A member of the RNA family "UnaL2 LINE 3' element" from Salvelinus namaycush, 55 nucleotides long. Pairs were carried over by alignment from the consensus structure, which is taken from published work. Rfam links the family to the GO term transposition, RNA-mediated.
RNA sequence: UGAAUGCACCAACUGUAAGUCACUCUGGAUAAGAGUGUCUGCUAAAUAACUCAAA
Numbered sequence: 001u002g003a004a005u006g007c008a009c010c011a012a013c014u015g016u017a018a019g020u021c022a023c024u025c026u027g028g029a030u031a032a033g034a035g036u037g038u039c040u041g042c043u044a045a046a047u048a049a050c051u052c053a054a055a
Stems, first nucleotide, its partner, number of pairs: 014044001015042003021037006